Annotation: Shown here is a 64-nucleotide sequence from Myotis davidii, a member of the family "mir-9242 microRNA precursor family". Rfam 15.1 lists 940 matches to the family in 18 species.
RNA sequence: GGCCUCCCUCUUUGGGGCGAUUGAUCGCAGGGCUCCAUGAUUGAUCGCCCCAAAGAGGUAGGCC
Numbered sequence: 001g002g003c004c005u006c007c008c009u010c011u012u013u014g015g016g017g018c019g020a021u022u023g024a025u026c027g028c029a030g031g032g033c034u035c036c037a038u039g040a041u042u043g044a045u046c047g048c049c050c051c052a053a054a055g056a057g058g059u060a061g062g063c064c
Stems, first nucleotide, its partner, number of pairs: 001064005007058021030035001
Description:
Rfam links the family to the GO terms miRNA-mediated post-transcriptional gene silencing and RISC complex.